[Rfam]
RNA: Bacterial RNase P class A
RNA sequence: CAAGUAGGUCGGGCGGUCGCCUUUUUCUGUAAUAUGAAAAGGGAGGAAAGUCCGAACUCCAUACAGCAGGGUGCUCCCUAACGGAGAGGUUUCGUGAGAAACGGAAAGUGCAACAGAAAGAAUACCGCCGAUUUCCGACUUGUUCGGAAAGGUAAGGGUGAAACGGUGGUGUAAGAGACCACCAGAUUCGGGAGUGAUCCCGGAUGCUCUGUAAACCCCACUCGGAGCAAGAUCAAGAAGGGAAAUACGCGUUGCUGGCGUAAGUUGGGCCUUGCCCGACAAUUUCCCGGGUAGAUCGCUUGAGCGUUGCGGUAACGCAGCGCCCAGAUUAAUGAUCGCCACCCGGUUUACCGGGAUACAGAAUUCGGCUUACAGACUUACUUGGAGU
Numbered sequence: 001c002a003a004g005u006a007g008g009u010c011g012g013g014c015g016g017u018c019g020c021c022u023u024u025u026u027c028u029g030u031a032a033u034a035u036g037a038a039a040a041g042g043g044a045g046g047a048a049a050g051u052c053c054g055a056a057c058u059c060c061a062u063a064c065a066g067c068a069g070g071g072u073g074c075u076c077c078c079u080a081a082c083g084g085a086g087a088g089g090u091u092u093c094g095u096g097a098g099a100a101a102c103g104g105a106a107a108g109u110g111c112a113a114c115a116g117a118a119a120g121a122a123u124a125c126c127g128c129c130g131a132u133u134u135c136c137g138a139c140u141u142g143u144u145c146g147g148a149a150a151g152g153u154a155a156g157g158g159u160g161a162a163a164c165g166g167u168g169g170u171g172u173a174a175g176a177g178a179c180c181a182c183c184a185g186a187u188u189c190g191g192g193a194g195u196g197a198u199c200c201c202g203g204a205u206g207c208u209c210u211g212u213a214a215a216c217c218c219c220a221c222u223c224g225g226a227g228c229a230a231g232a233u234c235a236a237g238a239a240g241g242g243a244a245a246u247a248c249g250c251g252u253u254g255c256u257g258g259c260g261u262a263a264g265u266u267g268g269g270c271c272u273u274g275c276c277c278g279a280c281a282a283u284u285u286c287c288c289g290g291g292u293a294g295a296u297c298g299c300u301u302g303a304g305c306g307u308u309g310c311g312g313u314a315a316c317g318c319a320g321c322g323c324c325c326a327g328a329u330u331a332a333u334g335a336u337c338g339c340c341a342c343c344c345g346g347u348u349u350a351c352c353g354g355g356a357u358a359c360a361g362a363a364u365u366c367g368g369c370u371u372a373c374a375g376a377c378u379u380a381c382u383u384g385g386a387g388u
Base pairs, nucleotide, nucleotide: 001384002383003382004381005380006379007378008377009376010375011373012340013339014338015337016336017335018334020043021042022041023040024039025038026037027036048371049370050369052368053367054366055365056364057227058226059225060224065272066271069223070222071221072220073219074088075087076086078084089102090101091100092099093098103218104217108216109215110212111211112210125157126156127153128152129151132150133149134148135147136146137145165183166182167181168180169179170178185207186205187204188203189202190201191200192199193198231297232296233295234294241288242287244285245284264280265279266278267277268276304323305322306321307320308319309318310317311316